Eukaryotic large subunit ribosomal RNA: a 542-nucleotide part of an RNA from Plasmodium vivax.
[Rfam]
RNA sequence: GAAGACCCUGUUGAGCUUUACUCUAGUCUGGCUUUGUGAAACGACUUAAGAGGUGUAGCAUAAGUGGGAGUAGAAACUGAAAUAUGUUUUUACGACAGUGAAAUACCACUACUUUUAAAGUUGUUUUACUUAUCUAUUGAUGGGGAAAUAUACUACUCGGUUCGCCGGGUAUUCAUAUUAAUUGAAUUAAUAAGUGGCACUUCUCAUAGUGUUUCACUUUCCUCCCGACUCUAUGGAGACAUAGCCAGGUGGGGAGUUUGACUGGGGCGGUACAUCUGUUAAACAAUAACGCAGAUGUCCAAAGACAAGCUCAAAGAGAACAGAAAUCUCUUGUAGACUAAAAGGGGAAAAGCUUGUUUGAUUUCUAUUUUCAGAAAAAGUAGAAAACGUGAAAGCGUGGCCUAUCGAUCCUUUAUAUUUGCAAAAUGACGGAAUUCAUCUUCCUACUGUGCAUAUAGAGGUGUCUGAAAAGUUACCACAGGGAUAACUGGCUUGUGGCUGCCAAGCGCUCCUAGCGACGUAGCUUUUUGAUCCUUCGAUGU
Numbered sequence: 001g002a003a004g005a006c007c008c009u010g011u012u013g014a015g016c017u018u019u020a021c022u023c024u025a026g027u028c029u030g031g032c033u034u035u036g037u038g039a040a041a042c043g044a045c046u047u048a049a050g051a052g053g054u055g056u057a058g059c060a061u062a063a064g065u066g067g068g069a070g071u072a073g074a075a076a077c078u079g080a081a082a083u084a085u086g087u088u089u090u091u092a093c094g095a096c097a098g099u100g101a102a103a104u105a106c107c108a109c110u111a112c113u114u115u116u117a118a119a120g121u122u123g124u125u126u127u128a129c130u131u132a133u134c135u136a137u138u139g140a141u142g143g144g145g146a147a148a149u150a151u152a153c154u155a156c157u158c159g160g161u162u163c164g165c166c167g168g169g170u171a172u173u174c175a176u177a178u179u180a181a182u183u184g185a186a187u188u189a190a191u192a193a194g195u196g197g198c199a200c201u202u203c204u205c206a207u208a209g210u211g212u213u214u215c216a217c218u219u220u221c222c223u224c225c226c227g228a229c230u231c232u233a234u235g236g237a238g239a240c241a242u243a244g245c246c247a248g249g250u251g252g253g254g255a256g257u258u259u260g261a262c263u264g265g266g267g268c269g270g271u272a273c274a275u276c277u278g279u280u281a282a283a284c285a286a287u288a289a290c291g292c293a294g295a296u297g298u299c300c301a302a303a304g305a306c307a308a309g310c311u312c313a314a315a316g317a318g319a320a321c322a323g324a325a326a327u328c329u330c331u332u333g334u335a336g337a338c339u340a341a342a343a344g345g346g347g348a349a350a351a352g353c354u355u356g357u358u359u360g361a362u363u364u365c366u367a368u369u370u371u372c373a374g375a376a377a378a379a380g381u382a383g384a385a386a387a388c389g390u391g392a393a394a395g396c397g398u399g400g401c402c403u404a405u406c407g408a409u410c411c412u413u414u415a416u417a418u419u420u421g422c423a424a425a426a427u428g429a430c431g432g433a434a435u436u437c438a439u440c441u442u443c444c445u446a447c448u449g450u451g452c453a454u455a456u457a458g459a460g461g462u463g464u465c466u467g468a469a470a471a472g473u474u475a476c477c478a479c480a481g482g483g484a485u486a487a488c489u490g491g492c493u494u495g496u497g498g499c500u501g502c503c504a505a506g507c508g509c510u511c512c513u514a515g516c517g518a519c520g521u522a523g524c525u526u527u528u529u530g531a532u533c534c535u536u537c538g539a540u541g542u
Base pairs, nucleotide, nucleotide: 007482008481009480010479012478013477014474015473016472017471018470020257021256022255023254027249028248029247030246031245032244033243036129037128038127039126040125041124042123043122044121045120046118047117048116049115050114051113052112063110064109065108066107067106070093071092072091073090074089075088076087077086133237134236135235136234137233143226144225145224146223152173154171155170156169157168158167159166160165192219193218194217195216196215197214260273261271262270263269274296275295276294277293278292279291299400300399305357306356307355308354309353310352311337312336314332315331316330317329318328319327338347339346362386363385364384365383366382367381368380369379370378388397389396390395411460412459413458414457415456416455420453421452422451491532493530495529497525498524499523500522501521502520506516507515
Dot-bracket structure: ......((((.(((((((.((((...(((((((..(((((((((((((((((..........(((((..((((((((........))))))))............))))).))))))).))))))))))...(((((.....((((.....(.(((((((....))))))).)..................((((((................))))))...))))......))))).....)))))))....))))..((((.....))).)((((((...........))))))..((....((((((((.((((((.......))))))...))((......))....))))))....(((((((((.......))))))))).(((....))).))..........((((((...(((............................))).)))))).........)))))..))))))........(.(.(.((((((...((.......))...))))))...)).)..........